[Rfam]
Source information:
Rfam assigns this 115-nucleotide RNA to the family "DUF3800-V RNA".
RNA sequence: AGGAGCAUGCAAUAAUAUCUUUUCAAGUGCUUUGGUGUUCCCUCGGAGUAUCCGGGGCAUAUCUGAGAAAUCAGGUAUAAAACCGAAGAGCAUCACUUGUUGAGACGCUGCUUCU
Numbered sequence: 001a002g003g004a005g006c007a008u009g010c011a012a013u014a015a016u017a018u019c020u021u022u023u024c025a026a027g028u029g030c031u032u033u034g035g036u037g038u039u040c041c042c043u044c045g046g047a048g049u050a051u052c053c054g055g056g057g058c059a060u061a062u063c064u065g066a067g068a069a070a071u072c073a074g075g076u077a078u079a080a081a082a083c084c085g086a087a088g089a090g091c092a093u094c095a096c097u098u099g100u101u102g103a104g105a106c107g108c109u110g111c112u113u114c115u
Stems, first nucleotide, its partner, number of pairs: 001115006009108002024099006030088007041057006
It is one of the family's seed sequences.